[Rfam]
RNA sequence: ACACGCGAAAGGAGGUGUUCCAGAAGUGAUUUCUUCUCGGACUCGUGAGGUGGCUGCGGGCUGACGCCCGUUGUCGCGCACUUUGCAGUGCAGGCCGGUCGUCGGCCAAUCCCAAUGCAGUCACCGACCCGCAGGCUCGCCGGUAAGUCCGGCCGGCUCCUCCGCAAGGAGGGACCAGAGCCUGCGGGUCUCCGCAU
Numbered sequence: 001a002c003a004c005g006c007g008a009a010a011g012g013a014g015g016u017g018u019u020c021c022a023g024a025a026g027u028g029a030u031u032u033c034u035u036c037u038c039g040g041a042c043u044c045g046u047g048a049g050g051u052g053g054c055u056g057c058g059g060g061c062u063g064a065c066g067c068c069c070g071u072u073g074u075c076g077c078g079c080a081c082u083u084u085g086c087a088g089u090g091c092a093g094g095c096c097g098g099u100c101g102u103c104g105g106c107c108a109a110u111c112c113c114a115a116u117g118c119a120g121u122c123a124c125c126g127a128c129c130c131g132c133a134g135g136c137u138c139g140c141c142g143g144u145a146a147g148u149c150c151g152g153c154c155g156g157c158u159c160c161u162c163c164g165c166a167a168g169g170a171g172g173g174a175c176c177a178g179a180g181c182c183u184g185c186g187g188g189u190c191u192c193c194g195c196a197u
Base pairs, nucleotide, nucleotide: 015057016056017055019053059107060106061105062104063103064102065101068098069097070096071093072092073091126190127189128188129187130186131185132184133183134182135181136180137179139157140156141155142154143153144152
Annotation
The family of this 197-nucleotide sequence from Streptomyces sp. ADI95-17 is "Actinobacteria sRNA Ms_IGR-5". Lineage of the source: Bacteria > Actinomycetota > Actinomycetes > Streptomycetaceae > Streptomyces.